The record is a 100-nucleotide RNA from Rostratula benghalensis, which matches "Small nucleolar RNA SNORD16" in Rfam.
RNA sequence: UGCUGUGAUGUUGUAAUUUGCGCCUGACUCUGUGCUGGGUGACAGUUGCCUGCUGUCGGUGCACUGGUGCAGACGGCUGACGAGUAAUGAACACUGAGCA
Dot-bracket structure: (((.................((.(.....(((((....(((((((.......))))).....))...)))))......).))...............)))
Pairs were carried over by alignment from the consensus structure, which was predicted with PFOLD. Its Rfam clan is "SNORD16 clan". Its family is annotated with nucleolus and RNA processing in the Gene Ontology. Taxonomically the source falls in Rostratula (Eukaryota, Deuterostomia, Sauria, Dinosauria).